[Rfam]
RNA: mir-14 microRNA precursor family
RNA sequence: AGUGGGGGUGAGAAACUGACUUAGACUCGUAAAUUUCAUUGAAGGCCAGUCAGUCUUUUUCUCUCUCCUAUU
Dot-bracket structure: ((((((((.((((.(..((((...(((.(................).))).))))..).)))).))))))))